The record is a 164-nucleotide sequence from Mesocricetus auratus, which matches "U1 spliceosomal RNA" in Rfam. By type it is a spliceosomal small nuclear RNA. A reference for the family is Zwieb (1997), "The uRNA database", Nucleic Acids Res. It scores 101 bits against the family's covariance model. Clan: U1 clan.
[Rfam]
Nucleotides: 164
Stems, first nucleotide, its partner, number of pairs: 013121003016048006023042005049090002052087001054086001056083003060079003063075002093116002095113001097110001099108002138163006146155001
Number, partner (000 for none) and nucleotide at each position: 001000a002000c003000a004000u005000u006000u007000a008000c009000c010000u011000g012000g013121c014120a015119g016048g017047g018046g019045a020044g021043a022000c023042a024041c025040c026039a027038u028000g029000a030000u031000c032000a033000g034000g035000c036000a037000g038027a039026u040025g041024g042023u043021u044020u045019u046018c047017c048016c049090a050089g051000a052087g053000a054086g055000a056083g057082g058081c059000u060079c061078a062077c063075c064074c065000a066000u067000u068000g069000u070000u071000c072000u073000u074064g075063g076000a077062g078061u079060g080000u081058g082057c083056u084000g085000g086054u087052c088000c089050c090049u091000g092000a093116g094115a095113u096000u097110u098000c099108u100107g101000c102000a103000u104000a105000c106000a107100c108099a109000g110097g111000u112000a113095a114000c115094u116093c117000a118000a119015c120014u121013g122000a123000a124000u125000g126000a127000u128000u129000u130000g131000u132000g133000g134000u135000a136000g137000u138163g139162g140161g141160g142159g143158a144000c145000u146155g147000u148000a149000u150000u151000a152000g153000c154000u155146c156000u157000c158143u159142c160141u161140c162139c163138u164000g